[Rfam]
Nucleotides: 448
Stems, first nucleotide, its partner, number of pairs: 001389006011024005026133001027131006038124001041118007053106001054104002059100003063096004071088001072086005137162007145154002167178003183356004188352003194346003203343001205342006222316002226313004231308005243300005249273003254268003274278001279294001283292002357379008390443001392440010408427005414421002
Number, partner (000 for none) and nucleotide at each position: 001389c002388u003387c004386c005385c006384c007000g008000a009000u010000a011024u012023a013022g014021c015020u016000u017000u018000a019000g020015g021014g022013c023012u024011a025000g026133c027131g028130u029129c030128u031127g032126g033000a034000u035000u036000a037000a038124a039000g040000g041118a042117g043116a044115a045114c046113g047112a048000a049000g050000g051000u052000a053106g054104a055103g056000c057000u058000c059100u060099g061098a062000a063096u064095a065094u066093a067000c068000g069000a070000u071088g072086g073085c074084c075083u076082c077000a078000u079000c080000u081000a082076g083075a084074g085073g086072u087000a088071c089000u090000g091000a092000g093066u094065a095064u096063a097000a098061u099060u100059a101000a102000a103055c104054u105000a106053c107000g108000a109000a110000u111000g112047u113046c114045g115044u116043u117042c118041u119000a120000a121000c122000c123000a124038u125000a126032c127031c128030a129029g130028g131027c132000a133026g134000u135000c136000a137162g138161u139160a140159c141158g142157u143156g144000u145154g146153c147000g148000a149000u150000a151000a152000g153146g154145u155000u156143c157142a158141u159140g160139u161138a162137c163000g164000u165000a166000a167178c168177g169176g170000a171000a172000a173000c174000a175000g176169c177168c178167g179000a180000u181000g182000a183356u184355c185354a186353c187000c188352a189351a190350a191000u192000a193000a194346g195345g196344u197000c198000c199000c200000a201000a202000a203343a204000u205342u206341u207340a208339u209338g210337c211000u212000a213000a214000g215000u216000g217000g218000a219000a220000a221000a222316g223315g224000a225000a226313g227312u228311g229310u230000c231308a232307c233306u234305a235304c236000u237000a238000a239000u240000a241000c242000a243300g244299c245298u246297a247296g248000a249273a250272u251271g252000u253000u254268u255267g256266c257000u258000u259000a260000g261000a262000a263000g264000c265000a266256g267255c268254a269000a270000u271251c272250g273249u274278u275000u276000a277000a278274a279294g280000a281000g282000u283292g284291c285000g286000u287000a288000a289000c290000a291284g292283c293000u294279c295000a296247c297246u298245a299244g300243u301000c302000u303000a304235g305234u306233g307232g308231u309000a310229a311228u312227g313226c314000g315223c316222c317000g318000a319000a320000a321000a322000u323000g324000u325000a326000c327000c328000g329000g330000g331000g332000c333000u334000a335000a336000a337210g338209c339208a340207u341206a342205a343203u344196a345195c346194c347000g348000a349000a350190u351189u352188u353186g354185u355184g356183g357379g358378u359377g360376u361375a362374u363373a364372a365000a366000c367000u368000a369000u370000g371000u372364u373363u374362a375361u376360a377359c378358g379357c380000g381000g382000u383000a384006g385005g386004g387003g388002a389001g390443c391000g392440u393439u394438c395437u396436u397435a398434u399433u400432g401431c402000g403000c404000u405000g406000a407000a408427g409426a410425u411424u412423g413000a414421c415420c416000g417000u418000g419000a420415g421414g422000a423412c424411a425410g426409u427408u428000g429000g430000a431401g432400c433399g434398a435397u436396g437395a438394g439393a440392a441000g442000u443390g444000a445000g446000a447000a448000u